[Rfam]
RNA: Histone 3' UTR stem-loop
Organism: Physeter macrocephalus
RNA sequence: CCAAAGGCUCUUUUCAGAGCCACCCAAAGAUAUCAGGAGAAGAGCU
Numbered sequence: 001c002c003a004a005a006g007g008c009u010c011u012u013u014u015c016a017g018a019g020c021c022a023c024c025c026a027a028a029g030a031u032a033u034c035a036g037g038a039g040a041a042g043a044g045c046u
Base pairs, nucleotide, nucleotide: 006021007020008019009018010017011016